The record is a 169-nucleotide sequence from Vibrio parahaemolyticus, which matches "Vibrio RNA AS7" in Rfam. The family's RNA type in Rfam is antisense RNA. For this family Rfam cites "Experimental discovery of sRNAs in Vibrio cholerae by direct cloning, 5S/tRNA depletion and parallel sequencing" (Liu et al., Nucleic Acids Res, 2009). About the family: Identified by direct cloning an parallel sequencing experiments with 5S/tRNA depletion. Confirmed by Northern blot. The source organism's lineage runs through Bacteria, Gammaproteobacteria, Vibrionaceae, Vibrio and Vibrio parahaemolyticus.
RNA sequence: GGCGUUUGUAGUAGUAACUUACUGCGUUCUUGGAUAUCGCCGCCGAUGUGAUAAGGCAAGCCACAGUUGGCAAAUGAAACAAACGGGCCACGUUCAAACAUGAUGAUUUCGGCAUCUUCGCUCAGACGACGAGCACGCGCCGCCGCAGAUGCACCACCUGCAACACCAC
Numbered sequence: 001g002g003c004g005u006u007u008g009u010a011g012u013a014g015u016a017a018c019u020u021a022c023u024g025c026g027u028u029c030u031u032g033g034a035u036a037u038c039g040c041c042g043c044c045g046a047u048g049u050g051a052u053a054a055g056g057c058a059a060g061c062c063a064c065a066g067u068u069g070g071c072a073a074a075u076g077a078a079a080c081a082a083a084c085g086g087g088c089c090a091c092g093u094u095c096a097a098a099c100a101u102g103a104u105g106a107u108u109u110c111g112g113c114a115u116c117u118u119c120g121c122u123c124a125g126a127c128g129a130c131g132a133g134c135a136c137g138c139g140c141c142g143c144c145g146c147a148g149a150u151g152c153a154c155c156a157c158c159u160g161c162a163a164c165a166c167c168a169c
Base pairs, nucleotide, nucleotide: 001167002166004164005163006162008161009160010159011025012024013023014022015021016020035053036052037051038050039049040048060071061070062069076154085146086144087143088142092140093139095137099133101131102130104128105127107125108124111122112121113120